Source information
The family of this 118-nucleotide sequence from Vitis rotundifolia is "MIR396 microRNA precursor family". NCBI's taxonomy places the organism under Eukaryota, Viridiplantae, Streptophyta, Magnoliopsida, Vitis. Rfam links the family to the GO terms RISC complex and miRNA-mediated post-transcriptional gene silencing. The match comes from Rfam's covariance-model search (97 bits). Rfam 15.1 lists 744 matches to the family in 207 species. A reference for the family is Sunkar et al. (2005), "Cloning and characterization of microRNAs from rice", Plant Cell.
[Rfam]
RNA sequence: CUUUGUAUUCUUCCACAGCUUUCUUGAACUGCAUUUUUCAGACUACUGGUGUGUUUUUGUAUGCACUGAAGUCAUUGUAACAGUUGCGGUUCAAUAAAGCUGUGGGAAGAUACCAACA
Numbered sequence: 001c002u003u004u005g006u007a008u009u010c011u012u013c014c015a016c017a018g019c020u021u022u023c024u025u026g027a028a029c030u031g032c033a034u035u036u037u038u039c040a041g042a043c044u045a046c047u048g049g050u051g052u053g054u055u056u057u058u059g060u061a062u063g064c065a066c067u068g069a070a071g072u073c074a075u076u077g078u079a080a081c082a083g084u085u086g087c088g089g090u091u092c093a094a095u096a097a098a099g100c101u102g103u104g105g106g107a108a109g110a111u112a113c114c115a116a117c118a
Stems, first nucleotide, its partner, number of pairs: 003115001005113003013105003017101006024094004029089005